[Rfam]
RNA sequence: UAAGUUCUUCGGGGCGGGGUGUGAUUCCCCACCGGCGGUAUAGUCCGCGACCCACUGUAACAGUGGUUGAUCUGGUGUAAUUCCGGAACCGACAGUAUAGUCUGGAUGAGAGAAGAAAUUG
Numbered sequence: 001u002a003a004g005u006u007c008u009u010c011g012g013g014g015c016g017g018g019g020u021g022u023g024a025u026u027c028c029c030c031a032c033c034g035g036c037g038g039u040a041u042a043g044u045c046c047g048c049g050a051c052c053c054a055c056u057g058u059a060a061c062a063g064u065g066g067u068u069g070a071u072c073u074g075g076u077g078u079a080a081u082u083c084c085g086g087a088a089c090c091g092a093c094a095g096u097a098u099a100g101u102c103u104g105g106a107u108g109a110g111a112g113a114a115g116a117a118a119u120u121g
Stems, first nucleotide, its partner, number of pairs: 003119001005117006017029003031101002033091002035048004043089002052066002071087005093104003
About this RNA:
A member of the RNA family "FMN riboswitch aptamer (RFN element)" from Hungatella hathewayi, 121 nucleotides long. The organism belongs to Hungatella, within Bacteria. Rfam links the family to the GO term FMN binding. The base pairs follow the family's consensus structure, which is taken from published work. It scores 118 bits against the family's covariance model.